[Rfam]
RNA sequence: GCAAUCUCGGAGCGUACAUUUAUUUUACGUUGUUGAUGCACUCAUCGAGUUCUCUGGGGGAUACGCGUAAGCACAGUUGGCUAAAGACAACUUUAGUUAUCAGUGCCAUUACGUAGGGUAGGUAUUGGCAUCAUCGUGAGCCAAUAGACGGGAUACUAGUGCGGCCAAUGGCGGCAUGUUAAUGGGAAACCCAACA
Numbered sequence: 001g002c003a004a005u006c007u008c009g010g011a012g013c014g015u016a017c018a019u020u021u022a023u024u025u026u027a028c029g030u031u032g033u034u035g036a037u038g039c040a041c042u043c044a045u046c047g048a049g050u051u052c053u054c055u056g057g058g059g060g061a062u063a064c065g066c067g068u069a070a071g072c073a074c075a076g077u078u079g080g081c082u083a084a085a086g087a088c089a090a091c092u093u094u095a096g097u098u099a100u101c102a103g104u105g106c107c108a109u110u111a112c113g114u115a116g117g118g119u120a121g122g123u124a125u126u127g128g129c130a131u132c133a134u135c136g137u138g139a140g141c142c143a144a145u146a147g148a149c150g151g152g153a154u155a156c157u158a159g160u161g162c163g164g165c166c167a168a169u170g171g172c173g174g175c176a177u178g179u180u181a182a183u184g185g186g187a188a189a190c191c192c193a194a195c196a
Stems, first nucleotide, its partner, number of pairs: 006058006065114006071106003123146007132138001160176003164172002